[Rfam]
The record is a 145-nucleotide RNA sequence from Durio zibethinus, which matches "mir-172 microRNA precursor family" in Rfam. Pairs were carried over by alignment from the consensus structure, which was predicted with PFOLD. Rfam links the family to the GO terms miRNA-mediated post-transcriptional gene silencing and RISC complex. About the family: mir-172 has been experimentally verified in Arabidopsis thaliana. This family is thought to target mRNAs coding for APETALA2-like transcription factors. The mature sequence is excised from the 3' arm of the hairpin. Taxonomically the source falls in Durio (Eukaryota, eudicotyledons, Gunneridae, Pentapetalae).

RNA sequence: UUUAUUGCCGCUGCAGCAUCAUCAAGAUUCCCAUAUAAAAUUUAAAGGGAUGAUUGGUAUAGUGAAGCAAAGCAUGAUCUCCACUAUAGAUCAAUUAAACCCUAAAAAAUUUUGUGAAUCUUGAUGAUGCUCCAUCAGCAAACAA
Number, nucleotide and partner (000 for none) at each position: 001u000002u000003u000004a000005u000006u000007g000008c000009c000010g136011c000012u134013g133014c000015a131016g130017c129018a128019u127020c126021a125022u124023c123024a122025a121026g120027a119028u118029u117030c116031c000032c114033a113034u000035a000036u000037a000038a000039a000040a000041u000042u000043u000044a000045a000046a000047g000048g000049g000050a000051u000052g000053a000054u000055u000056g000057g000058u000059a000060u000061a000062g000063u000064g000065a000066a000067g000068c000069a000070a000071a000072g000073c000074a000075u000076g000077a000078u000079c000080u000081c000082c000083a000084c000085u000086a000087u000088a000089g000090a000091u000092c000093a000094a000095u000096u000097a000098a000099a000100c000101c000102c000103u000104a000105a000106a000107a000108a000109a000110u000111u000112u000113u033114g032115u000116g030117a029118a028119u027120c026121u025122u024123g023124a022125u021126g020127a019128u018129g017130c016131u015132c000133c013134a012135u000136c010137a000138g000139c000140a000141a000142a000143c000144a000145a000